[Rfam]
RNA sequence: UGCUCAUCCAGAGGGGUGGAGGGACACGGCCCUGUGAAGCCCCGGCAACCAUCCCGGUGGACGUUGCUCGUCAGGUGCGAGGCGGCCGGGACAGGUGCCAACUCCGUCCCACUGUCAAGGUGGCAGUGGGGAAGAUGAGGG
Numbered sequence: 001u002g003c004u005c006a007u008c009c010a011g012a013g014g015g016g017u018g019g020a021g022g023g024a025c026a027c028g029g030c031c032c033u034g035u036g037a038a039g040c041c042c043c044g045g046c047a048a049c050c051a052u053c054c055c056g057g058u059g060g061a062c063g064u065u066g067c068u069c070g071u072c073a074g075g076u077g078c079g080a081g082g083c084g085g086c087c088g089g090g091a092c093a094g095g096u097g098c099c100a101a102c103u104c105c106g107u108c109c110c111a112c113u114g115u116c117a118a119g120g121u122g123g124c125a126g127u128g129g130g131g132a133a134g135a136u137g138a139g140g141g
Stems, first nucleotide, its partner, number of pairs: 001141001003139006013043005021032003026107004044099004049095002052090003103133001108130009

Shown here is a 141-nucleotide sequence from Thermobifida fusca, a member of the family "SAM riboswitch aptamer (S box leader)". The organism belongs to Thermobifida fusca, within Bacteria.